RNA: U1 spliceosomal RNA
RNA sequence: UCUCUUCAGGGGAGAUACCAUGAUCACGGUGGUAGUUUUCCUAGGGUGAGGCUUAUCCAUUGCACUGCGGGUGUGCAGACCCCUGCGAUUUCCCCAAAUGCGGGAAACUCGACUGCAUAAUUUGUGGUAGUGCGGGACUGUGUUCGUGCUCCCCCCCC
Numbered sequence: 001u002c003u004c005u006u007c008a009g010g011g012g013a014g015a016u017a018c019c020a021u022g023a024u025c026a027c028g029g030u031g032g033u034a035g036u037u038u039u040c041c042u043a044g045g046g047u048g049a050g051g052c053u054u055a056u057c058c059a060u061u062g063c064a065c066u067g068c069g070g071g072u073g074u075g076c077a078g079a080c081c082c083c084u085g086c087g088a089u090u091u092c093c094c095c096a097a098a099u100g101c102g103g104g105a106a107a108c109u110c111g112a113c114u115g116c117a118u119a120a121u122u123u124g125u126g127g128u129a130g131u132g133c134g135g136g137a138c139u140g141u142g143u144u145c146g147u148g149c150u151c152c153c154c155c156c157c158c
Stems, first nucleotide, its partner, number of pairs: 007115003010042006017036002020033002043084004048080001051076002054073005086111003089107003093103002132157001134155003140149003